[Rfam]
RNA sequence: UCCUCAAUCAAAAGCCAGUAUCAUUGGCUGUCCACAUUUCACUUACAUGUGGACGGUCUCUCUAAGCUGGUAGAUUGAAGUUCUUGUAACACGAACAACUUAAGUUCUGUCGUGGCAGCUAAACUCCCAAGUUCCAAGACACUAUUGUCGUUCAAACAACU
Numbered sequence: 001u002c003c004u005c006a007a008u009c010a011a012a013a014g015c016c017a018g019u020a021u022c023a024u025u026g027g028c029u030g031u032c033c034a035c036a037u038u039u040c041a042c043u044u045a046c047a048u049g050u051g052g053a054c055g056g057u058c059u060c061u062c063u064a065a066g067c068u069g070g071u072a073g074a075u076u077g078a079a080g081u082u083c084u085u086g087u088a089a090c091a092c093g094a095a096c097a098a099c100u101u102a103a104g105u106u107c108u109g110u111c112g113u114g115g116c117a118g119c120u121a122a123a124c125u126c127c128c129a130a131g132u133u134c135c136a137a138g139a140c141a142c143u144a145u146u147g148u149c150g151u152u153c154a155a156a157c158a159a160c161u
Base pairs, nucleotide, nucleotide: 015070016069017068018067019066027057028056029055030054031053032052033051034050035049036048093153094152095151096150098148099147109140110139111138113136114135115134117133118132119131
Small nucleolar RNA snR161: a 161-nucleotide RNA from Lachancea dasiensis. For this family Rfam cites "Genome-wide searching for pseudouridylation guide snoRNAs: analysis of the Saccharomyces cerevisiae genome" (Schattner et al., Nucleic Acids Res, 2004). Rfam classes the family as an H/ACA-box small nucleolar RNA. Clan: SNORA44 clan. NCBI's taxonomy places the organism under Eukaryota, Dikarya, Saccharomycotina, Saccharomycetales, Lachancea. Rfam links the family to the GO terms RNA processing and nucleolus.